[Rfam]
RNA sequence: AUCCUCAGGACCUGGGCUUGGGUGGUAGGAGGAAUUGGUGCUGGUCUUUCAUUUUGGAUUUGACUCCAGCCCCACAGCCUCAGCCACCCCAGCCAAUUGUCAUAGGAG
Numbered sequence: 001a002u003c004c005u006c007a008g009g010a011c012c013u014g015g016g017c018u019u020g021g022g023u024g025g026u027a028g029g030a031g032g033a034a035u036u037g038g039u040g041c042u043g044g045u046c047u048u049u050c051a052u053u054u055u056g057g058a059u060u061u062g063a064c065u066c067c068a069g070c071c072c073c074a075c076a077g078c079c080u081c082a083g084c085c086a087c088c089c090c091a092g093c094c095a096a097u098u099g100u101c102a103u104a105g106g107a108g
Base pairs, nucleotide, nucleotide: 002107003106004105005104009101010100011099015094016093017092018091020089021088022087023086024085025084026083029081030080031079032078036074037073038072040070041069042068043067044066049063050062051061
RNA: mir-766 microRNA precursor family
Organism: Pongo pygmaeus